[Rfam]
RNA sequence: UCAAUCCGUCCUACGGCACUCCACUUUAUGCCUGGGAGGGGUCAAAGAAAGGAGAAAUCCGCUUUGUUCAGCGGUGCGGCAGUGUGGAGACCUGCCGUAAAGUCCGGGAGAUACAGCUGCUCCCGGGCGAGACGGGGACGCGAAGGCGGAACCGUUAUGGGCAAGCAAGAUGGCA
Numbered sequence: 001u002c003a004a005u006c007c008g009u010c011c012u013a014c015g016g017c018a019c020u021c022c023a024c025u026u027u028a029u030g031c032c033u034g035g036g037a038g039g040g041g042u043c044a045a046a047g048a049a050a051g052g053a054g055a056a057a058u059c060c061g062c063u064u065u066g067u068u069c070a071g072c073g074g075u076g077c078g079g080c081a082g083u084g085u086g087g088a089g090a091c092c093u094g095c096c097g098u099a100a101a102g103u104c105c106g107g108g109a110g111a112u113a114c115a116g117c118u119g120c121u122c123c124c125g126g127g128c129g130a131g132a133c134g135g136g137g138a139c140g141c142g143a144a145g146g147c148g149g150a151a152c153c154g155u156u157a158u159g160g161g162c163a164a165g166c167a168a169g170a171u172g173g174c175a
Stems, first nucleotide, its partner, number of pairs: 006040002009037005015032004059074004064164007075099008084091002102128009131156005139148003
RNA: malK-I RNA